Source information:
A member of the RNA family "M-box riboswitch aptamer (ykoK leader)" from Flintibacter faecis, 161 nucleotides long. It scores 98 bits against the family's covariance model. Taxonomically the source falls in Flintibacter (Bacteria, Bacillati, Clostridia, Eubacteriales). Gene Ontology terms of the family: regulation of gene expression and response to magnesium ion.

[Rfam]
RNA sequence: ACGAUGAUCCGGUAGGUAAGGCUACCACAGGGAUAUGGGUCGCUGCCGCAAAGGAAUGGAGACAUUCCACGCUGGUUUGAACAGGUCCUGUCGAAAACAAGGCAGAAUCUAAUGCGACUUCACCGCCCUGUGAUGCUAAAGCUCGAACGGUGGCAGAGAAG
Dot-bracket structure: ....(...(((.[.(((..(((...(((((((......(((((.(((((.....((((....))))....)).)).)......(((...(((.......])))...)))....))))).......)))))))..)))...)))....)...))...)....